The family of this 75-nucleotide RNA is "L13-Bacteroidia ribosomal protein leader". By type it is a cis-regulatory leader. The family's consensus secondary structure is taken from published work.
RNA sequence: GGGGGUGGCUUAGAGCCCCCGCUUGCGGAAGUGUUAAUAGUAGUGUUUUUGGCCGGACAUUACGGUUAGUGAAUC
Numbered sequence: 001g002g003g004g005g006u007g008g009c010u011u012a013g014a015g016c017c018c019c020c021g022c023u024u025g026c027g028g029a030a031g032u033g034u035u036a037a038u039a040g041u042a043g044u045g046u047u048u049u050u051g052g053c054c055g056g057a058c059a060u061u062a063c064g065g066u067u068a069g070u071g072a073a074u075c
Stems, first nucleotide, its partner, number of pairs: 001020006034069005040063009
Dot-bracket structure: ((((((........)))))).............(((((.(((((((((......))))))))).)))))......